The family of this 186-nucleotide sequence from Pycnococcus provasolii is "U2 spliceosomal RNA". It scores 74 bits against the family's covariance model. NCBI's taxonomy places the organism under Eukaryota, Viridiplantae, Chlorophyta, Pseudoscourfieldiales, Pycnococcus. From the family's description: U2 is a small nuclear RNA (snRNA) component of the spliceosome (involved in pre-mRNA splicing). Rfam classes the family as a spliceosomal small nuclear RNA. The base pairs follow the family's consensus structure, which is taken from published work. A reference for the family is Zwieb (1997), "The uRNA database", Nucleic Acids Res.

RNA sequence: UUAUCUCUCCUGCCUUAUAUGGCUCGGAUUAAUUUGUAGUAACUGUUUUAUAAUCAUUGAAAUGAUUAUUGGGAAUCACUGAUUCCUAUAACAUAUUUCAUAUAAUUUCUUACGAGGUAGCCAGUUGCUUGCAACAGACUACAGCUUGUCCUCGGCCAUCCACAUCUGCCAUCGACGAGCGACUCU
Number, nucleotide and partner (000 for none) at each position: 001u000002u000003a000004u000005c000006u000007c000008u028009c027010c026011u000012g023013c022014c021015u000016u000017a000018u000019a000020u000021g014022g013023c012024u000025c000026g010027g009028a008029u000030u000031a000032a000033u000034u000035u000036g000037u000038a000039g000040u000041a000042a000043c000044u000045g000046u000047u000048u000049u000050a069051u068052a067053a066054u065055c064056a000057u000058u000059g000060a000061a000062a000063u000064g055065a054066u053067u052068a051069u050070u000071g087072g086073g085074a084075a083076u082077c081078a000079c000080u000081g077082a076083u075084u074085c073086c072087u071088a000089u000090a000091a000092c000093a000094u000095a000096u000097u000098u000099c000100a000101u000102a000103u000104a000105a000106u000107u000108u000109c000110u000111u000112a000113c000114g000115a000116g000117g142118u141119a140120g139121c000122c137123a000124g135125u134126u133127g132128c000129u000130u000131g000132c127133a126134a125135c124136a000137g122138a000139c120140u119141a118142c117143a000144g000145c179146u178147u177148g176149u175150c174151c000152u000153c000154g170155g169156c168157c000158a000159u000160c000161c000162a000163c000164a000165u000166c000167u000168g156169c155170c154171a000172u000173c000174g150175a149176c148177g147178a146179g145180c000181g000182a000183c000184u000185c000186u000